[Rfam]
RNA sequence: UACAUCUCACUCCAGACCAUAUCCUGAACUCCUGAAAAUACUGUAAGUAAACGUUUGCCUUUACACACCUUGAUCGCAACGUCAGGGUUGCGGCACGCCGGGAAAACGACACGGAACAUCAGGAAGGGGGCAAUGGCCGGUACGCUAAUCAAGUAAGCGUGGAAUUUUGUCUGAUCUUGACGAAAAGGGGAAGAGUUAAAAGCGCUUAUCAAUAUAAAUCAUGGGAGAUUUUUGCAUUCAAGUGUGUAAAAAUGCGCAAUAUCACUUUUUGUGUGGGAAUAAAAAGGAGAAAACUUGAUGAGCACCGAUCUGAAAUUUUCGUUAGUGACCACCAUUAUUGUGCUGGGCCUGAUUGUCGCAGGCGGUCUGACUGCCGCACUGAACUGAUUU
Numbered sequence: 001u002a003c004a005u006c007u008c009a010c011u012c013c014a015g016a017c018c019a020u021a022u023c024c025u026g027a028a029c030u031c032c033u034g035a036a037a038a039u040a041c042u043g044u045a046a047g048u049a050a051a052c053g054u055u056u057g058c059c060u061u062u063a064c065a066c067a068c069c070u071u072g073a074u075c076g077c078a079a080c081g082u083c084a085g086g087g088u089u090g091c092g093g094c095a096c097g098c099c100g101g102g103a104a105a106a107c108g109a110c111a112c113g114g115a116a117c118a119u120c121a122g123g124a125a126g127g128g129g130g131c132a133a134u135g136g137c138c139g140g141u142a143c144g145c146u147a148a149u150c151a152a153g154u155a156a157g158c159g160u161g162g163a164a165u166u167u168u169g170u171c172u173g174a175u176c177u178u179g180a181c182g183a184a185a186a187g188g189g190g191a192a193g194a195g196u197u198a199a200a201a202g203c204g205c206u207u208a209u210c211a212a213u214a215u216a217a218a219u220c221a222u223g224g225g226a227g228a229u230u231u232u233u234g235c236a237u238u239c240a241a242g243u244g245u246g247u248a249a250a251a252a253u254g255c256g257c258a259a260u261a262u263c264a265c266u267u268u269u270u271g272u273g274u275g276g277g278a279a280u281a282a283a284a285a286g287g288a289g290a291a292a293a294c295u296u297g298a299u300g301a302g303c304a305c306c307g308a309u310c311u312g313a314a315a316u317u318u319u320c321g322u323u324a325g326u327g328a329c330c331a332c333c334a335u336u337a338u339u340g341u342g343c344u345g346g347g348c349c350u351g352a353u354u355g356u357c358g359c360a361g362g363c364g365g366u367c368u369g370a371c372u373g374c375c376g377c378a379c380u381g382a383a384c385u386g387a388u389u390u
Base pairs, nucleotide, nucleotide: 015131017129018128020126030124031123032122033121034120035119041093042092045060047058048057049056050055076091077090078089079088080087098114099113100112142196143195145193146192149163150162152160170188171187172186175183176182266285268283270281271280272279

The record is a 390-nucleotide RNA sequence from Citrobacter koseri, which matches "Enterobacterial sRNA STnc550" in Rfam. It is annotated as a small RNA. The family's consensus secondary structure was predicted with CMfinder. Lineage of the source: Bacteria > Pseudomonadota > Gammaproteobacteria > Enterobacterales > Citrobacter koseri.